[Rfam]
RNA sequence: AUUGUUCACUCUCCCUUAAAAGGCUUCCAGCCUACCCUACCUUGACCCUGACUCAAGCUGGAAGCCUUUAAGGGGGAGUGGACAA
Numbered sequence: 001a002u003u004g005u006u007c008a009c010u011c012u013c014c015c016u017u018a019a020a021a022g023g024c025u026u027c028c029a030g031c032c033u034a035c036c037c038u039a040c041c042u043u044g045a046c047c048c049u050g051a052c053u054c055a056a057g058c059u060g061g062a063a064g065c066c067u068u069u070a071a072g073g074g075g076g077a078g079u080g081g082a083c084a085a
Stems, first nucleotide, its partner, number of pairs: 006081010017070002020068008
MIR473 microRNA precursor family: an 85-nucleotide RNA sequence from Tripterygium wilfordii. Pairs were carried over by alignment from the consensus structure, which was predicted with WAR. The literature on the family includes a 2005 paper in Plant Cell by Lu et al., "Novel and mechanical stress-responsive MicroRNAs in Populus trichocarpa that are absent from Arabidopsis". NCBI's taxonomy places the organism under Eukaryota, Viridiplantae, Spermatophyta, Gunneridae, Tripterygium. It scores 61 bits against the family's covariance model.